[Rfam]
RNA sequence: ACGCCGGAUAAGUGAAUGCUUUGCCACAGUCUUAGACUGAUUUAUAAGCUGGGCUGAGAUUCGCUUAGAACGGAGU
Numbered sequence: 001a002c003g004c005c006g007g008a009u010a011a012g013u014g015a016a017u018g019c020u021u022u023g024c025c026a027c028a029g030u031c032u033u034a035g036a037c038u039g040a041u042u043u044a045u046a047a048g049c050u051g052g053g054c055u056g057a058g059a060u061u062c063g064c065u066u067a068g069a070a071c072g073g074a075g076u
Base pairs, nucleotide, nucleotide: 004073005072006071009067010066011065012064013063014062015061016060017059019058020057021056023054024053025052027051028050029049

Shown here is a 76-nucleotide RNA from Steinernema carpocapsae, a member of the family "mir-86 microRNA precursor family".
For this family Rfam cites "An abundant class of tiny RNAs with probable regulatory roles in Caenorhabditis elegans" (Lau et al., Science, 2001).
Pairs were carried over by alignment from the consensus structure, which was predicted with RNAalifold.
Rfam 15.1 lists 60 matches to the family in 60 species.
The match comes from Rfam's covariance-model search (84 bits).